A member of the RNA family "Gag/pol translational readthrough site" from Orycteropus afer, 62 nucleotides long.
Taxonomically the source falls in Orycteropus afer (Eukaryota, Eumetazoa, Bilateria, Eutheria).
Pairs were carried over by alignment from the consensus structure, which is taken from published work.
Its family is annotated with viral translational readthrough in the Gene Ontology.
The family has 8 seed sequences and 3,368 matches in Rfam 15.1.
The match comes from Rfam's covariance-model search (68 bits).
It is annotated as a cis-regulatory element.
RNA sequence: UAGGGGCGACAGGGUUCGGUUCCCCUCCCUGAACCCAGGGUAACCCUUAAAGUGGAGGGGAC
Numbered sequence: 001u002a003g004g005g006g007c008g009a010c011a012g013g014g015u016u017c018g019g020u021u022c023c024c025c026u027c028c029c030u031g032a033a034c035c036c037a038g039g040g041u042a043a044c045c046c047u048u049a050a051a052g053u054g055g056a057g058g059g060g061a062c
Stems, first nucleotide, its partner, number of pairs: 008041001010039001012036004016031001018029002022060006